[Rfam]
This 287-nucleotide sequence from Colletotrichum tofieldiae belongs to the Rfam family "Fungal signal recognition particle RNA". It is annotated as a non-coding RNA gene. Rfam 15.1 lists 748 matches to the family in 741 species. Clan: SRP clan. Its family is annotated with SRP-dependent cotranslational protein targeting to membrane, signal sequence recognition, signal recognition particle, plasma membrane targeting and signal recognition particle, endoplasmic reticulum targeting in the Gene Ontology. A reference for the family is Batey et al. (2001), "Structural and energetic analysis of RNA recognition by a universally conserved protein from the signal recognition particle", J Mol Biol. It scores 162 bits against the family's covariance model.

RNA sequence: CGGCUGUAAUGGUCAAAUGGUUGAAGGCUUUCAUUACUCUUCUUCCGCUACCCCAUCCACAUUGGAACCCUCUAGCGGCGCCCAGUGCGAAUGCUGCGGUGGCCACCCACUCGCAUGGGUAACCUGCGAUCGCUGCGUGUGGCCCUAAGCAAUGAAGAUUACACUUGAGGGAGGUUUCACUCUGCAGAGGCAUCUUCACCGUCGCAUGGCGUGCUGGAUUACGAUCGCUAGGGGCUUGGGGUAGUGGUUGAAGAUGGAGAUGUCAACUCCAAUUUUUUGCCAUUUUU
Numbered sequence: 001c002g003g004c005u006g007u008a009a010u011g012g013u014c015a016a017a018u019g020g021u022u023g024a025a026g027g028c029u030u031u032c033a034u035u036a037c038u039c040u041u042c043u044u045c046c047g048c049u050a051c052c053c054c055a056u057c058c059a060c061a062u063u064g065g066a067a068c069c070c071u072c073u074a075g076c077g078g079c080g081c082c083c084a085g086u087g088c089g090a091a092u093g094c095u096g097c098g099g100u101g102g103c104c105a106c107c108c109a110c111u112c113g114c115a116u117g118g119g120u121a122a123c124c125u126g127c128g129a130u131c132g133c134u135g136c137g138u139g140u141g142g143c144c145c146u147a148a149g150c151a152a153u154g155a156a157g158a159u160u161a162c163a164c165u166u167g168a169g170g171g172a173g174g175u176u177u178c179a180c181u182c183u184g185c186a187g188a189g190g191c192a193u194c195u196u197c198a199c200c201g202u203c204g205c206a207u208g209g210c211g212u213g214c215u216g217g218a219u220u221a222c223g224a225u226c227g228c229u230a231g232g233g234g235c236u237u238g239g240g241g242u243a244g245u246g247g248u249u250g251a252a253g254a255u256g257g258a259g260a261u262g263u264c265a266a267c268u269c270c271a272a273u274u275u276u277u278u279g280c281c282a283u284u285u286u287u
Base pairs, nucleotide, nucleotide: 002014003013004012016284017283018282019281020280021279023277024276025275026274027273029271032262033261034260035258037256040252041251042250045247046246047245048244049243050242051241052240053239069234070233071232073230074229075228076227077226079223080222082217083216084215085214086213087212088211089210091207092206093205094204096202097201098200099199101144103142104141105140106139108137111129112128113127114126115125117124118123145149153198154197155196156195157194158193159192164189165188166187171182172181173180